RNA: Small nucleolar RNA snR191
Organism: Plenodomus tracheiphilus
RNA sequence: UCCCCAUCUUCAAGUCAAGGACCUUUACCUUUUGCCAUGCAUUGGUUCUGUUACAAGAUGGGAAGAGCAAAAGCGUCUCGCUUGCUCAAAGCCGUCUUGGCUGCGGGUAGACUGGCCUCCGUUUUGGUUGCCGGUCAAUAGAGUUCGCGCGUGAUUCGUUUGAGUUGAGGGCCGUCUCUGCGUUAGCAGCAUCAUGGCGAUUCUCUUAGUAAUGUUUCACACAUUU
Number, nucleotide and partner (000 for none) at each position: 001u000002c000003c062004c061005c060006a059007u058008c000009u000010u000011c000012a000013a000014g000015u000016c000017a000018a049019g048020g047021a046022c045023c044024u000025u000026u000027a000028c000029c000030u000031u000032u000033u000034g000035c000036c000037a000038u000039g000040c000041a000042u000043u000044g023045g022046u021047u020048c019049u018050g000051u000052u000053a000054c000055a000056a000057g000058a007059u006060g005061g004062g003063a000064a000065g000066a000067g000068c000069a000070a000071a000072a000073g148074c147075g146076u000077c143078u142079c141080g000081c000082u110083u109084g108085c107086u106087c105088a000089a000090a102091g101092c100093c099094g000095u000096c000097u000098u000099g093100g092101c091102u090103g000104c000105g087106g086107g085108u084109a083110g082111a000112c134113u133114g132115g131116c130117c000118u000119c127120c126121g125122u000123u000124u000125u121126g120127g119128u000129u000130g116131c115132c114133g113134g112135u000136c000137a000138a000139u000140a000141g079142a078143g077144u000145u000146c075147g074148c073149g000150c000151g220152u219153g218154a217155u000156u000157c214158g213159u212160u000161u000162g000163a000164g000165u000166u000167g205168a204169g203170g202171g000172c000173c199174g198175u197176c196177u000178c189179u188180g187181c186182g000183u000184u000185a000186g181187c180188a179189g178190c000191a000192u000193c000194a000195u000196g176197g175198c174199g173200a000201u000202u170203c169204u168205c167206u000207u000208a000209g000210u000211a000212a159213u158214g157215u000216u000217u154218c153219a152220c151221a000222c000223a000224u000225u000226u000